This 102-nucleotide RNA from [Clostridium] cellulosi belongs to the Rfam family "THF (Tetrahydrofolate) riboswitch aptamer".
A search with the family's covariance model found it, with a score of 90 bits.
From the family's description: Tetrahydrofolate (THF) riboswitch was first reported for Ames et al. as an RNA motif in 5' untranslated (5'-UTR)regions of folate transport and biosynthesis genes in Firmicutes genomes.
Rfam links the family to the GO term tetrahydrofolate metabolic process.
RNA sequence: GGCAAAGUAGAUUGCUGCGCGUUAAGUGCCGGAUGGACGGGAAGUUGCCGUCCGGACGAAAAAUCCUCGUGAUUUGCGGUGCAGCUUUCGCAUUCCGUUGCC
Numbered sequence: 001g002g003c004a005a006a007g008u009a010g011a012u013u014g015c016u017g018c019g020c021g022u023u024a025a026g027u028g029c030c031g032g033a034u035g036g037a038c039g040g041g042a043a044g045u046u047g048c049c050g051u052c053c054g055g056a057c058g059a060a061a062a063a064u065c066c067u068c069g070u071g072a073u074u075u076g077c078g079g080u081g082c083a084g085c086u087u088u089c090g091c092a093u094u095c096c097g098u099u100g101c102c
Stems, first nucleotide, its partner, number of pairs: 001102005010089002014085006020078003026057002029055008040095003044091001061075004